[Rfam]
RNA sequence: UGGAUCGGUGACAGCCACUGGUGGCGUCUGAGUCGCGUACGAUGAGUACGUGUCUGGAACUCUGAGGCCCGA
Numbered sequence: 001u002g003g004a005u006c007g008g009u010g011a012c013a014g015c016c017a018c019u020g021g022u023g024g025c026g027u028c029u030g031a032g033u034c035g036c037g038u039a040c041g042a043u044g045a046g047u048a049c050g051u052g053u054c055u056g057g058a059a060c061u062c063u064g065a066g067g068c069c070c071g072a
Base pairs, nucleotide, nucleotide: 002070003069005067006066
RNA: Small nucleolar RNA SNORD113/SNORD114 family
Organism: Mustela putorius